This 74-nucleotide RNA from Deminuibacter soli belongs to the Rfam family "tRNA".

RNA sequence: GGUUCUGUAGCUCAACUGAAUAGAGCAUCUCACUACGGAUGAGAAGGUUUCAGGUUUGAAUCCUGACAGGAUCA
Number, nucleotide and partner (000 for none) at each position: 001g073002g072003u071004u070005c069006u068007g067008u000009a000010g026011c025012u024013c023014a000015a000016c000017u000018g000019a000020a000021u000022a000023g013024a012025g011026c010027a000028u044029c043030u042031c041032a040033c000034u000035a000036c000037g000038g000039a000040u032041g031042a030043g029044a028045a000046g000047g000048u000049u000050u066051c065052a064053g063054g062055u000056u000057u000058g000059a000060a000061u000062c054063c053064u052065g051066a050067c007068a006069g005070g004071a003072u002073c001074a000

The family's RNA type in Rfam is transfer RNA.